[Rfam]
RNA sequence: UUGAAGAGCCUCAUUGGUAAGUACUUAGGUCUUAGUAUAUAUGACUUUGAGUUAUUGAAAAUAAAUAAGAAAGGAGCAAUAUCAACCCUCUUGAUAAAAUAAGAAGUUAAUUAUUGCUCCUUU
Numbered sequence: 001u002u003g004a005a006g007a008g009c010c011u012c013a014u015u016g017g018u019a020a021g022u023a024c025u026u027a028g029g030u031c032u033u034a035g036u037a038u039a040u041a042u043g044a045c046u047u048u049g050a051g052u053u054a055u056u057g058a059a060a061a062u063a064a065a066u067a068a069g070a071a072a073g074g075a076g077c078a079a080u081a082u083c084a085a086c087c088c089u090c091u092u093g094a095u096a097a098a099a100u101a102a103g104a105a106g107u108u109a110a111u112u113a114u115u116g117c118u119c120c121u122u123u
Base pairs, nucleotide, nucleotide: 008018009017010016070123071122072121073120074119075118076117077116078115079114080113081112085108089104090103091102092101
Shown here is a 123-nucleotide sequence from Quercus lobata, a member of the family "Plastid-psbA-1 3UTR RNA". From the family's description: Plastid psbA-1 is a non-coding RNA (ncRNA) present in plastids. It was identified in inverted repeat sequences in the 3 prime untranslate region (3UTR) of photosystem II quinone-binding protein (psbA). It is annotated as a cis-regulatory element. NCBI's taxonomy places the organism under Eukaryota, Streptophyta, Mesangiospermae, Gunneridae, Quercus. Pairs were carried over by alignment from the consensus structure, which was predicted with LocARNA.